[Rfam]
RNA sequence: GUUGCUUCUUACUGGUGAACUCUCUCUAAUUAAUAAAUAGUGAGGGAUGUUCAUGUUUCCGAAGCAUAGAUUAAUAUUUUUUUGCCAGUUUUAAACAGCGCUGUGUAUGCUUCAAUUGCACUGUUUUGCUACCUGUCUGCUGGUAUAUUU
Numbered sequence: 001g002u003u004g005c006u007u008c009u010u011a012c013u014g015g016u017g018a019a020c021u022c023u024c025u026c027u028a029a030u031u032a033a034u035a036a037a038u039a040g041u042g043a044g045g046g047a048u049g050u051u052c053a054u055g056u057u058u059c060c061g062a063a064g065c066a067u068a069g070a071u072u073a074a075u076a077u078u079u080u081u082u083u084g085c086c087a088g089u090u091u092u093a094a095a096c097a098g099c100g101c102u103g104u105g106u107a108u109g110c111u112u113c114a115a116u117u118g119c120a121c122u123g124u125u126u127u128g129c130u131a132c133c134u135g136u137c138u139g140c141u142g143g144u145a146u147a148u149u150u
Base pairs, nucleotide, nucleotide: 003066004065005064006063007062008061016053017052018051019050020049021047022046023045024044025043084144085143086142087141088140089139097130098129099128101123103121104120105119
RNA: small nucleolar RNA snoR137
Organism: Citrus x clementina